[Rfam]
RNA: Small nucleolar RNA SNORA8
Nucleotides: 126
Stems, first nucleotide, its partner, number of pairs: 002060006014054002017051001018046004023041001024039005063115002069113001070111004079099005
Number, partner (000 for none) and nucleotide at each position: 001000g002060g003059c004058a005057c006056u007055g008000u009000g010000u011000g012000g013000u014054a015053u016000c017051u018046g019045c020044a021043g022000c023041c024039a025038g026037u027036u028035g029000g030000u031000u032000g033000a034000u035028c036027a037026g038025c039024u040000g041023g042000u043021u044020u045019g046018u047000u048000c049000a050000a051017a052000a053015a054014u055007c056006a057005g058004u059003g060002c061000u062000a063115g064114a065000c066000a067000a068000a069113c070111u071110c072109a073108a074000c075000a076000u077000c078000u079099g080098g081097c082096a083095u084000c085000g086000u087000u088000g089000g090000u091000c092000u093000c094000c095083a096082u097081g098080c099079u100000g101000c102000u103000u104000g105000u106000g107000c108073u109072u110071g111070g112000a113069g114064u115063c116000c117000c118000g119000g120000u121000a122000u123000a124000u125000u126000a